RNA sequence: AUUCCGGUUGAUCCUGCCGGACCCGACCGCUAUCGGGGUAGGGAUAAGCCAUGGGAGUCUUACACUCCCGGGUAAGGGAGUGUGGCGGACGGCUGAGUAACACGUGGCUAACCUACCCUCGGGACGGGGAUAACCCCGGGAAACUGGGGAUAAUCCCCGAUAGGGAAGGAGUCCUGGAAUGGUUCCUUCCCUAAAGGGCUAUAGGCUAUUUCCCGUUUGUAGCCGCCCGAGGAUGGGGCUACGGCCCAUCAGGCUGUCGGUGGGGUAAAGGCCCACCGAACCUAUAACGGGUAGGGGCCGUGGAAGCGGGAGCCUCCAGUUGGGCACUGAGACAAGGGCCCAGGCCCUACGGGGCGCACCAGGCGCGAAACGUCCCCAAUGCGCGAAAGCGUGAGGGCGCUACCCCGAGUGCCUCCGCAAGGAGGCUUUUCCCCGCUCUAAAAAGGCGGGGGAAUAAGCGGGGGGCAAGUCUGGUGUCAGCCGCCGCGGUAAUACCAGCUCCGCGAGUGGUCGGGGUGAUUACUG
Numbered sequence: 001a002u003u004c005c006g007g008u009u010g011a012u013c014c015u016g017c018c019g020g021a022c023c024c025g026a027c028c029g030c031u032a033u034c035g036g037g038g039u040a041g042g043g044a045u046a047a048g049c050c051a052u053g054g055g056a057g058u059c060u061u062a063c064a065c066u067c068c069c070g071g072g073u074a075a076g077g078g079a080g081u082g083u084g085g086c087g088g089a090c091g092g093c094u095g096a097g098u099a100a101c102a103c104g105u106g107g108c109u110a111a112c113c114u115a116c117c118c119u120c121g122g123g124a125c126g127g128g129g130a131u132a133a134c135c136c137c138g139g140g141a142a143a144c145u146g147g148g149g150a151u152a153a154u155c156c157c158c159g160a161u162a163g164g165g166a167a168g169g170a171g172u173c174c175u176g177g178a179a180u181g182g183u184u185c186c187u188u189c190c191c192u193a194a195a196g197g198g199c200u201a202u203a204g205g206c207u208a209u210u211u212c213c214c215g216u217u218u219g220u221a222g223c224c225g226c227c228c229g230a231g232g233a234u235g236g237g238g239c240u241a242c243g244g245c246c247c248a249u250c251a252g253g254c255u256g257u258c259g260g261u262g263g264g265g266u267a268a269a270g271g272c273c274c275a276c277c278g279a280a281c282c283u284a285u286a287a288c289g290g291g292u293a294g295g296g297g298c299c300g301u302g303g304a305a306g307c308g309g310g311a312g313c314c315u316c317c318a319g320u321u322g323g324g325c326a327c328u329g330a331g332a333c334a335a336g337g338g339c340c341c342a343g344g345c346c347c348u349a350c351g352g353g354g355c356g357c358a359c360c361a362g363g364c365g366c367g368a369a370a371c372g373u374c375c376c377c378a379a380u381g382c383g384c385g386a387a388a389g390c391g392u393g394a395g396g397g398c399g400c401u402a403c404c405c406c407g408a409g410u411g412c413c414u415c416c417g418c419a420a421g422g423a424g425g426c427u428u429u430u431c432c433c434c435g436c437u438c439u440a441a442a443a444a445g446g447c448g449g450g451g452g453a454a455u456a457a458g459c460g461g462g463g464g465g466c467a468a469g470u471c472u473g474g475u476g477u478c479a480g481c482c483g484c485c486g487c488g489g490u491a492a493u494a495c496c497a498g499c500u501c502c503g504c505g506a507g508u509g510g511u512c513g514g515g516g517u518g519a520u521u522a523c524u525g
Stems, first nucleotide, its partner, number of pairs: 004020005022515010033408009042366001048364003052361003057086003062083007093319003103243007112236002117232007125159004134149006164190008173182002197224010245291003252282002257279008294316004298309004321342005344355004372398001374397003380393005411426006431451007458504006471498004480487002